A member of the RNA family "Vault RNA" from Chanos chanos, 101 nucleotides long. About the family: This family of RNAs are found as part of the enigmatic vault ribonucleoprotein complex.
RNA sequence: GUGCUGGCGUGGCUCAGGGUUUGCUUCGUUGGCCCUGUAAGCUGUCACACAAACGCCGCGAUCAGUGGCGGUUCGAACCCCGGGCGCUGUAUAGUGCUUUU
Numbered sequence: 001g002u003g004c005u006g007g008c009g010u011g012g013c014u015c016a017g018g019g020u021u022u023g024c025u026u027c028g029u030u031g032g033c034c035c036u037g038u039a040a041g042c043u044g045u046c047a048c049a050c051a052a053a054c055g056c057c058g059c060g061a062u063c064a065g066u067g068g069c070g071g072u073u074c075g076a077a078c079c080c081c082g083g084g085c086g087c088u089g090u091a092u093a094g095u096g097c098u099u100u101u
Stems, first nucleotide, its partner, number of pairs: 002096005012085004017081003025077004
NCBI's taxonomy places the organism under Eukaryota, Actinopteri, Clupeocephala, Anotophysi, Chanos.
The family's RNA type in Rfam is non-coding RNA gene.
Pairs were carried over by alignment from the consensus structure, which is taken from published work.